[Rfam]
RNA sequence: GGCAUAUUUUGCCCAGGCGGAGCUCGACCGCAUCUUCAAGCCAUGACACGCUUCAUUGAGGAGCACCGGCAGACAUAUGGUGUCGGGUCAAUCUGCAGGGUUCUGUCGAUUGCACCA
Numbered sequence: 001g002g003c004a005u006a007u008u009u010u011g012c013c014c015a016g017g018c019g020g021a022g023c024u025c026g027a028c029c030g031c032a033u034c035u036u037c038a039a040g041c042c043a044u045g046a047c048a049c050g051c052u053u054c055a056u057u058g059a060g061g062a063g064c065a066c067c068g069g070c071a072g073a074c075a076u077a078u079g080g081u082g083u084c085g086g087g088u089c090a091a092u093c094u095g096c097a098g099g100g101u102u103c104u105g106u107c108g109a110u111u112g113c114a115c116c117a
Base pairs, nucleotide, nucleotide: 017031018030019029020028078117079116080115081114082113089112090111092109093108095106096105097104098103

ALIL pseudoknot: a 117-nucleotide RNA from Acetobacter pomorum. Lineage of the source: Bacteria > Pseudomonadati > Alphaproteobacteria > Acetobacterales > Acetobacter pomorum.